RNA sequence: CGAGUCGGCCAGAUGAUCGCGGUGCGCAAGCGCUGAGGAAAGUCCGGACUCCACAGAGCAGGGUGGUGGGUAACGCCCACCCGGGGUGACCCGCGGGAAAGUGCCACAGAAAACAGACCGCCCGGCUUCGGUCGGGUAAGGGUGAAACGGUGGUGUAAGAGACCACCAGCACACCGGGUGACCGGUGUGGCUCGGUAAACCCCACCUGGAGCAAGACCAAGAAGGCCAGCCCCGGUUGGCUGCGGACGCUGUCUGAGCGCUGCUCGCGCGAGGCGUCCGGGUGGGUUGCAUGAGCCCGUCGGCAACGGCGGGCCUAGAUGGAUGAUCAUCCUUCGACAGAAUCCGGCUUACCGGCCGACUCGUCCU
Numbered sequence: 001c002g003a004g005u006c007g008g009c010c011a012g013a014u015g016a017u018c019g020c021g022g023u024g025c026g027c028a029a030g031c032g033c034u035g036a037g038g039a040a041a042g043u044c045c046g047g048a049c050u051c052c053a054c055a056g057a058g059c060a061g062g063g064u065g066g067u068g069g070g071u072a073a074c075g076c077c078c079a080c081c082c083g084g085g086g087u088g089a090c091c092c093g094c095g096g097g098a099a100a101g102u103g104c105c106a107c108a109g110a111a112a113a114c115a116g117a118c119c120g121c122c123c124g125g126c127u128u129c130g131g132u133c134g135g136g137u138a139a140g141g142g143u144g145a146a147a148c149g150g151u152g153g154u155g156u157a158a159g160a161g162a163c164c165a166c167c168a169g170c171a172c173a174c175c176g177g178g179u180g181a182c183c184g185g186u187g188u189g190g191c192u193c194g195g196u197a198a199a200c201c202c203c204a205c206c207u208g209g210a211g212c213a214a215g216a217c218c219a220a221g222a223a224g225g226c227c228a229g230c231c232c233c234g235g236u237u238g239g240c241u242g243c244g245g246a247c248g249c250u251g252u253c254u255g256a257g258c259g260c261u262g263c264u265c266g267c268g269c270g271a272g273g274c275g276u277c278c279g280g281g282u283g284g285g286u287u288g289c290a291u292g293a294g295c296c297c298g299u300c301g302g303c304a305a306c307g308g309c310g311g312g313c314c315u316a317g318a319u320g321g322a323u324g325a326u327c328a329u330c331c332u333u334c335g336a337c338a339g340a341a342u343c344c345g346g347c348u349u350a351c352c353g354g355c356c357g358a359c360u361c362g363u364c365c366u
Stems, first nucleotide, its partner, number of pairs: 001362010012330007020035006040349003044346005049211004056265004061207005066080005081095001082093004096202002101200002103196003118141002120137007149167006169191001170189008215287004257269004294313008